[Rfam]
About this RNA
The record is a 109-nucleotide RNA sequence from Sorghum bicolor, which matches "MIR5565 microRNA precursor family" in Rfam. The base pairs follow the family's consensus structure, which was predicted with RNAalifold. NCBI's taxonomy places the organism under Eukaryota, Embryophyta, Mesangiospermae, Andropogoneae, Sorghum. Gene Ontology terms of the family: miRNA-mediated post-transcriptional gene silencing and RISC complex.
RNA sequence: GUUGUCAGAUUCAUCUCAAUCCACGUGUGUUGGAGUGGAUUGAGGUGGAAUUUAGUUCGAGUUCCACUCCAACUCACUUCAACACAUGUGGAUUGAUACGAAUCUCACU
Numbered sequence: 001g002u003u004g005u006c007a008g009a010u011u012c013a014u015c016u017c018a019a020u021c022c023a024c025g026u027g028u029g030u031u032g033g034a035g036u037g038g039a040u041u042g043a044g045g046u047g048g049a050a051u052u053u054a055g056u057u058c059g060a061g062u063u064c065c066a067c068u069c070c071a072a073c074u075c076a077c078u079u080c081a082a083c084a085c086a087u088g089u090g091g092a093u094u095g096a097u098a099c100g101a102a103u104c105u106c107a108c109u
Stems, first nucleotide, its partner, number of pairs: 004108002007105006014098001016096017035077004040072003045067003